[Rfam]
RNA: FMN riboswitch aptamer (RFN element)
RNA sequence: UAAUUCCUUCGGGGUCGGGUGAAAUUCCCAAUCGACGGUGAUGAAGUCAAACUUCUAAGCCCGUGAGCUCUUUUUGAGCAGGAUUUGGUGUGAGUCCAAAGCCGACAGUAUAGUCUGGAUGGGAGAAGGAGCAC
Numbered sequence: 001u002a003a004u005u006c007c008u009u010c011g012g013g014g015u016c017g018g019g020u021g022a023a024a025u026u027c028c029c030a031a032u033c034g035a036c037g038g039u040g041a042u043g044a045a046g047u048c049a050a051a052c053u054u055c056u057a058a059g060c061c062c063g064u065g066a067g068c069u070c071u072u073u074u075u076g077a078g079c080a081g082g083a084u085u086u087g088g089u090g091u092g093a094g095u096c097c098a099a100a101g102c103c104g105a106c107a108g109u110a111u112a113g114u115c116u117g118g119a120u121g122g123g124a125g126a127a128g129g130a131g132c133a134c
Stems, first nucleotide, its partner, number of pairs: 004131007017029003031114002033104002035064004059102002067079003084100005106117003